[Rfam]
RNA sequence: GUUUUGUUGUCUUUGGUGCUCUAGCUGUAUGAUGAUUUUGAUAAUUCAUAAAGCUAGGCAUCAAAGCCAACAAGGC
Numbered sequence: 001g002u003u004u005u006g007u008u009g010u011c012u013u014u015g016g017u018g019c020u021c022u023a024g025c026u027g028u029a030u031g032a033u034g035a036u037u038u039u040g041a042u043a044a045u046u047c048a049u050a051a052a053g054c055u056a057g058g059c060a061u062c063a064a065a066g067c068c069a070a071c072a073a074g075g076c
Base pairs, nucleotide, nucleotide: 001076002075003074004073005072007070008069009068011066012065013064014063015062016061017060018059019058021057022056023055024054025053026052028050029049030048031047032046
Background:
Rfam assigns this 76-nucleotide RNA from Aphidius gifuensis to the family "mir-9/mir-79 microRNA precursor family". The source organism's lineage runs through Eukaryota, Opisthokonta, Hexapoda, Neoptera and Aphidius. The match comes from Rfam's covariance-model search (61 bits). The literature on the family includes a 2001 paper in Science by Lagos-Quintana et al., "Identification of novel genes coding for small expressed RNAs". Its family is annotated with RISC complex and miRNA-mediated post-transcriptional gene silencing in the Gene Ontology. Rfam 15.1 lists 5,647 matches to the family in 934 species.